[Rfam]
RNA sequence: ACCGCGUACUUACCUACUAUAUAGUAGCCGGGAUACAUGUCUUUCUCCUACUAUAUAGUAGGUAAGUAUGCGGUUU
Numbered sequence: 001a002c003c004g005c006g007u008a009c010u011u012a013c014c015u016a017c018u019a020u021a022u023a024g025u026a027g028c029c030g031g032g033a034u035a036c037a038u039g040u041c042u043u044u045c046u047c048c049u050a051c052u053a054u055a056u057a058g059u060a061g062g063u064a065a066g067u068a069u070g071c072g073g074u075u076u
Base pairs, nucleotide, nucleotide: 001074002073003072004071005070006069007068008067009066010065011064012063013062014061015060017058018057019056020055021054022053023052024051025050026049027048030045031044033042035040

Shown here is a 76-nucleotide RNA from Ameiurus melas, a member of the family "mir-7563 microRNA precursor family". Pairs were carried over by alignment from the consensus structure, which was predicted with RNAalifold.